[Rfam]
RNA sequence: UUAAUUUACAGUUAAGUUUAUUAAAAACUGUUUGAUAUUUAAGUAAUGAAUUUUUUGGUUUAACCGUAAUCUAAGUACGGCAUCUUAAAUAGGAAAAUUACCUUGAUUGGUAAUUUUUUUUAUUUAAA
Numbered sequence: 001u002u003a004a005u006u007u008a009c010a011g012u013u014a015a016g017u018u019u020a021u022u023a024a025a026a027a028c029u030g031u032u033u034g035a036u037a038u039u040u041a042a043g044u045a046a047u048g049a050a051u052u053u054u055u056u057g058g059u060u061u062a063a064c065c066g067u068a069a070u071c072u073a074a075g076u077a078c079g080g081c082a083u084c085u086u087a088a089a090u091a092g093g094a095a096a097a098u099u100a101c102c103u104u105g106a107u108u109g110g111u112a113a114u115u116u117u118u119u120u121u122a123u124u125u126a127a128a
Stems, first nucleotide, its partner, number of pairs: 008031004012026002036091006046083003049060003064080005093118010
RNA: DUF3800-I RNA